A member of the RNA family "MIR812 microRNA precursor family" from Oryza sativa, 194 nucleotides long. Pairs were carried over by alignment from the consensus structure, which was predicted with RNAalifold. Taxonomically the source falls in Oryza sativa (Eukaryota, Spermatophyta, Mesangiospermae, Oryza).
[Rfam]
RNA sequence: CCUCCGUCCCAUAAUAAGCGCAGUUCUAUCCGUCUUAUUUGAAAUAUUUUUAUGAUUAGUAUUUUUAUUGUUAUUAGAUGAUAAAAUAUGAAUAGUACUUUAUGCGUGACUUAACUUUUCAAUUUUUUUCAUAAAUUUUUCAAAUAAGAUGGACAGUCAAACGUUGGGCACGGAAACUUAUGGCUGCACUUAUA
Numbered sequence: 001c002c003u004c005c006g007u008c009c010c011a012u013a014a015u016a017a018g019c020g021c022a023g024u025u026c027u028a029u030c031c032g033u034c035u036u037a038u039u040u041g042a043a044a045u046a047u048u049u050u051u052a053u054g055a056u057u058a059g060u061a062u063u064u065u066u067a068u069u070g071u072u073a074u075u076a077g078a079u080g081a082u083a084a085a086a087u088a089u090g091a092a093u094a095g096u097a098c099u100u101u102a103u104g105c106g107u108g109a110c111u112u113a114a115c116u117u118u119u120c121a122a123u124u125u126u127u128u129u130c131a132u133a134a135a136u137u138u139u140u141c142a143a144a145u146a147a148g149a150u151g152g153a154c155a156g157u158c159a160a161a162c163g164u165u166g167g168g169c170a171c172g173g174a175a176a177c178u179u180a181u182g183g184c185u186g187c188a189c190u191u192a193u194a
Base pairs, nucleotide, nucleotide: 019168021166022165023164024163025161026156027155029153030152031151032150033149034148035147036146037145038144